[Rfam]
RNA: ALIL pseudoknot
RNA sequence: AGCAUCGCGGAGCUCGACCGCCCACACCACAGGUAGUGGCCUACAUCGACGCCCACAAGGGCGAGUACGGGGUCGAGCCGAUCUGCAAGGUUCUGCAGGUCGCCCCG
Numbered sequence: 001a002g003c004a005u006c007g008c009g010g011a012g013c014u015c016g017a018c019c020g021c022c023c024a025c026a027c028c029a030c031a032g033g034u035a036g037u038g039g040c041c042u043a044c045a046u047c048g049a050c051g052c053c054c055a056c057a058a059g060g061g062c063g064a065g066u067a068c069g070g071g072g073u074c075g076a077g078c079c080g081a082u083c084u085g086c087a088a089g090g091u092u093c094u095g096c097a098g099g100u101c102g103c104c105c106c107g
Base pairs, nucleotide, nucleotide: 007021008020009019010018068107069106070105071104072103079102080101082099083098084097085096086095087094